Notes: A member of the RNA family "c-di-GMP-I riboswitch aptamer" from Arsukibacterium sp. MJ3, 90 nucleotides long. Lineage of the source: Bacteria > Pseudomonadota > Chromatiales > Chromatiaceae > Arsukibacterium. GEMM was predicted in a large-scale screen for bacterial structured RNA regulatory elements. Genes associated with GEMM are involved in a diverse array of functions, including chemotaxis regulation, signal transduction, secretion and chitin.
[Rfam]
RNA sequence: UUACCAUCUUGGCACGUCAGUUGAAAAGCUGCACACGCAAAGCUAUGGGCCUUAAGGGGUAAUAACCCUCAUGGUCGCCAGGCUGCAUCA
Numbered sequence: 001u002u003a004c005c006a007u008c009u010u011g012g013c014a015c016g017u018c019a020g021u022u023g024a025a026a027a028g029c030u031g032c033a034c035a036c037g038c039a040a041a042g043c044u045a046u047g048g049g050c051c052u053u054a055a056g057g058g059g060u061a062a063u064a065a066c067c068c069u070c071a072u073g074g075u076c077g078c079c080a081g082g083c084u085g086c087a088u089c090a
Stems, first nucleotide, its partner, number of pairs: 012038002017033001018031005041084004046080003049075003056069004
It scores 51 bits against the family's covariance model.